[Rfam]
Background
This 85-nucleotide sequence from Oryzias latipes belongs to the Rfam family "mir-135 microRNA precursor family". The literature on the family includes a 2002 paper in Curr Biol by Lagos-Quintana et al., "Identification of tissue-specific microRNAs from mouse". Rfam links the family to the GO terms gene silencing by miRNA and RISC complex. The family's consensus secondary structure was predicted with PFOLD.
RNA sequence: UUGCUGUUGUGUCUUAUGGCUUUUUAUUCCUACGUGAUGGUAGAUGGGUUCAUGUAGGAGUAGAAGCCACUAAACACGCGGUGAG
Numbered sequence: 001u002u003g004c005u006g007u008u009g010u011g012u013c014u015u016a017u018g019g020c021u022u023u024u025u026a027u028u029c030c031u032a033c034g035u036g037a038u039g040g041u042a043g044a045u046g047g048g049u050u051c052a053u054g055u056a057g058g059a060g061u062a063g064a065a066g067c068c069a070c071u072a073a074a075c076a077c078g079c080g081g082u083g084a085g
Base pairs, nucleotide, nucleotide: 002084005081008078009077010076011075012074014072017069018068019067020066021065022064023063026061027060028059029058030057031056032055033054034053035052036051037050